A member of the RNA family "M23 RNA", 52 nucleotides long.

RNA sequence: CGGCGUGCCGCAGGCCGAAAACUGCGGCGGUGGGUGCGUCCCACCCGAAAGG
Numbered sequence: 001c002g003g004c005g006u007g008c009c010g011c012a013g014g015c016c017g018a019a020a021a022c023u024g025c026g027g028c029g030g031u032g033g034g035u036g037c038g039u040c041c042c043a044c045c046c047g048a049a050a051g052g
Stems, first nucleotide, its partner, number of pairs: 007028006029045006
Rfam's curators put it in the seed alignment.